This 59-nucleotide RNA sequence from Trichocoleus sp. FACHB-262 belongs to the Rfam family "Nitrogen stress-induced RNA 1".
RNA sequence: UGGUAGAUGCACCCUGAUUUUAAUCCUCUGGCUCCUUCGGGCAGUCGGGGGAUUUCCUU
Numbered sequence: 001u002g003g004u005a006g007a008u009g010c011a012c013c014c015u016g017a018u019u020u021u022a023a024u025c026c027u028c029u030g031g032c033u034c035c036u037u038c039g040g041g042c043a044g045u046c047g048g049g050g051g052a053u054u055u056c057c058u059u
Stems, first nucleotide, its partner, number of pairs: 002013003025051009034041001
Rfam 15.1 lists 962 matches to the family in 163 species. NCBI's taxonomy places the organism under Bacteria, Cyanophyceae, Leptolyngbyales, Trichocoleusaceae, Trichocoleus. It scores 50 bits against the family's covariance model.